[Rfam]
RNA sequence: GUUGCGGUGGUGUCUAAUUCGCUUGGUGCAGGUCGGGAACUGACUCGCCUGCUGUGAAUUCGUCUGUGUCGUUAAUUAUUGUGACUUAUACUUUGUAGUUUCUAAGUAAAUUAUUUUUAAGAUUCUAAGUAAAUUAUUUUUAAAGGAACUUAAAAAGAUUGUAUGUCCGAAUUUAAGUUUAAAUUUCGAAGUUCAAACUGUAUAUAUAAAUAUAAAUUGAUACAGGGAGAUUACGAAGUUUGUUCCCGCCUUGCAUCAACUGAAUCGGAGACCGCGGUGAAU
Numbered sequence: 001g002u003u004g005c006g007g008u009g010g011u012g013u014c015u016a017a018u019u020c021g022c023u024u025g026g027u028g029c030a031g032g033u034c035g036g037g038a039a040c041u042g043a044c045u046c047g048c049c050u051g052c053u054g055u056g057a058a059u060u061c062g063u064c065u066g067u068g069u070c071g072u073u074a075a076u077u078a079u080u081g082u083g084a085c086u087u088a089u090a091c092u093u094u095g096u097a098g099u100u101u102c103u104a105a106g107u108a109a110a111u112u113a114u115u116u117u118u119a120a121g122a123u124u125c126u127a128a129g130u131a132a133a134u135u136a137u138u139u140u141u142a143a144a145g146g147a148a149c150u151u152a153a154a155a156a157g158a159u160u161g162u163a164u165g166u167c168c169g170a171a172u173u174u175a176a177g178u179u180u181a182a183a184u185u186u187c188g189a190a191g192u193u194c195a196a197a198c199u200g201u202a203u204a205u206a207u208a209a210a211u212a213u214a215a216a217u218u219g220a221u222a223c224a225g226g227g228a229g230a231u232u233a234c235g236a237a238g239u240u241u242g243u244u245c246c247c248g249c250c251u252u253g254c255a256u257c258a259a260c261u262g263a264a265u266c267g268g269a270g271a272c273c274g275c276g277g278u279g280a281a282u
Stems, first nucleotide, its partner, number of pairs: 013269002017265004023259010034248005040242001
RNA: MIR168 microRNA precursor family